[Rfam]
RNA sequence: AGUUGCUCAUUCACCUCGAUAUGCCGCCGCUGCUCUCCAAGAGCAGAGAUUGCUACAUAACUACCGAAUGACGCCAAAGAACGGUGCCUAUCGUCCAACAUACCGAUAAUUGUCUUACGACUUUAUCAAACAUCGGGCGACACGUUGAGUGAGGCACCCCCUA
Number, nucleotide and partner (000 for none) at each position: 001a000002g000003u000004u000005g074006c073007u071008c070009a069010u068011u067012c066013a000014c000015c000016u000017c000018g000019a000020u059021a058022u057023g056024c000025c000026g054027c000028c052029g000030c000031u000032g000033c000034u000035c000036u000037c000038c000039a000040a000041g000042a000043g000044c000045a000046g000047a000048g000049a000050u000051u000052g028053c000054u026055a000056c023057a022058u021059a020060a000061c000062u000063a000064c000065c000066g012067a011068a010069u009070g008071a007072c000073g006074c005075c000076a000077a000078a000079g000080a000081a000082c000083g158084g157085u156086g155087c154088c153089u152090a000091u000092c139093g138094u137095c136096c135097a000098a000099c000100a000101u000102a000103c000104c000105g127106a126107u125108a124109a123110u000111u000112g000113u000114c000115u000116u000117a000118c000119g000120a000121c000122u000123u109124u108125a107126u106127c105128a000129a000130a000131c000132a000133u000134c000135g096136g095137g094138c093139g092140a000141c151142a150143c149144g000145u000146u000147g000148a000149g143150u142151g141152a089153g088154g087155c086156a085157c084158c083159c000160c000161c000162u000163a000
This 163-nucleotide sequence from Sodalis ligni belongs to the Rfam family "Glm Y RNA activator of glmS mRNA".
Rfam describes the family as follows. This family consists of a number of bacterial RNA genes of around 167 bases in length. The tke1 RNA gene is present in Escherichia coli, Shigella flexneri, Yersinia pestis and Salmonella species where it is found between the yfhK and purL genes.
Its Rfam clan is "Glm clan".
The literature on the family includes a 2008 paper in PLoS Biol by Urban and Vogel, "Two seemingly homologous noncoding RNAs act hierarchically to activate glmS mRNA translation".
Pairs were carried over by alignment from the consensus structure, which is taken from published work.